[Rfam]
U7 small nuclear RNA: a 62-nucleotide sequence from Prolemur simus. Animal histone pre-mRNAs are spliced by a different mechanism than nuclear pre-mRNAs and self-splicing introns. This processing involves the U7 snRNP, which contains only one RNA species: U7. The 5' end of U7 RNA is thought to base-pair to a conserved spacer element downstream of the cleavage site in histone pre-mRNA. This family contains a number of annotated U7 pseudogenes. NCBI's taxonomy places the organism under Eukaryota, Chordata, Euteleostomi, Tetrapoda, Prolemur. It scores 44 bits against the family's covariance model.
RNA sequence: CAGUGUUAUAACUCUUGUAGGAUUUGUCUGGCAGGUUUUCUGGUUCUCACUGGAAGAUUCCA
Dot-bracket structure: .................................(((((((((((....)))))))))))...